Shown here is a 58-nucleotide sequence from Homo sapiens, a member of the family "mir-5697 microRNA precursor family". Gene Ontology terms of the family: miRNA-mediated post-transcriptional gene silencing and RISC complex. The family's consensus secondary structure was predicted with RNAalifold. Taxonomically the source falls in Homo (Eukaryota, Mammalia, Haplorrhini, Homininae). Rfam's curators put it in the seed alignment.
RNA sequence: AAGUAGUUUCAUGAUAAAGGGUGUAUGAGAGAUCAACCCUUUAUCAUGAAACGCUUGA
Numbered sequence: 001a002a003g004u005a006g007u008u009u010c011a012u013g014a015u016a017a018a019g020g021g022u023g024u025a026u027g028a029g030a031g032a033u034c035a036a037c038c039c040u041u042u043a044u045c046a047u048g049a050a051a052c053g054c055u056u057g058a
Stems, first nucleotide, its partner, number of pairs: 001056004006052006013045010026035003
Dot-bracket structure: ((((.((((((.((((((((((...(((....))))))))))))).))))))))))..